[Rfam]
RNA sequence: UGGAUGUGGACUUAUGGCAGGGCCGUACCCCUGGUCCUGUCAGUGUCACACUGCAGAGCAAACUGUGAUGCAGAACCACUGCCUGGCCUAUCCCUGUAGGCUGCUGGCACUGAACUGGGUUGCACAUUG
Numbered sequence: 001u002g003g004a005u006g007u008g009g010a011c012u013u014a015u016g017g018c019a020g021g022g023c024c025g026u027a028c029c030c031c032u033g034g035u036c037c038u039g040u041c042a043g044u045g046u047c048a049c050a051c052u053g054c055a056g057a058g059c060a061a062a063c064u065g066u067g068a069u070g071c072a073g074a075a076c077c078a079c080u081g082c083c084u085g086g087c088c089u090a091u092c093c094c095u096g097u098a099g100g101c102u103g104c105u106g107g108c109a110c111u112g113a114a115c116u117g118g119g120u121u122g123c124a125c126a127u128u129g
Stems, first nucleotide, its partner, number of pairs: 001050001003047003012043001015042003019038003023033001066122004071117001077112002082107002084103006
The family of this 129-nucleotide RNA from Jaculus jaculus is "Small nucleolar RNA SNORA42/SNORA80 family". A reference for the family is Schattner et al. (2006), "A computational screen for mammalian pseudouridylation guide H/ACA RNAs", RNA. Gene Ontology terms of the family: nucleolus and RNA processing. The organism belongs to Jaculus, within Eukaryota. Rfam describes the family as follows. The members of this family belong to the H/ACA class of snoRNAs that guide the sites of modification of uridines to pseudouridines.